A member of the RNA family "DUF3800-IX RNA", 81 nucleotides long. The sequence is in the family's curated seed alignment. Rfam describes the family as follows. Actinobacteria, Firmicutes (1 example), Nitrospirae, Proteobacteria, Verrucomicrobia (1 example).
[Rfam]
RNA sequence: UCGCCCCCGGCGACAAGGUAGCCAUCUGUGGCUGCCUUUCUCGAUGAGGUUUCUCAUUGGAGAAUAGUCAGGGGUGUUUUA
Numbered sequence: 001u002c003g004c005c006c007c008c009g010g011c012g013a014c015a016a017g018g019u020a021g022c023c024a025u026c027u028g029u030g031g032c033u034g035c036c037u038u039u040c041u042c043g044a045u046g047a048g049g050u051u052u053c054u055c056a057u058u059g060g061a062g063a064a065u066a067g068u069c070a071g072g073g074g075u076g077u078u079u080u081a
Stems, first nucleotide, its partner, number of pairs: 002076006009069003017036007038064005